[Rfam]
RNA sequence: CCCGUCCGGUUCGUGGACGCCGCUGCCCAUCCAAGCCCACUCCCGGUUACUCUGGCGCCGUGCGACAAGCCCCGCCCGACGGGGAAGCCGCAUAGCCGACAGCCGUCGCAUCCCAGGGAGCCCCUUCAUG
Numbered sequence: 001c002c003c004g005u006c007c008g009g010u011u012c013g014u015g016g017a018c019g020c021c022g023c024u025g026c027c028c029a030u031c032c033a034a035g036c037c038c039a040c041u042c043c044c045g046g047u048u049a050c051u052c053u054g055g056c057g058c059c060g061u062g063c064g065a066c067a068a069g070c071c072c073c074g075c076c077c078g079a080c081g082g083g084g085a086a087g088c089c090g091c092a093u094a095g096c097c098g099a100c101a102g103c104c105g106u107c108g109c110a111u112c113c114c115a116g117g118g119a120g121c122c123c124c125u126u127c128a129u130g
Stems, first nucleotide, its partner, number of pairs: 061092004071083004095109002098107003
Dot-bracket structure: ............................................................((((......((((.....)))).....))))..((.(((....))))).....................
RNA: Streptomyces-metH RNA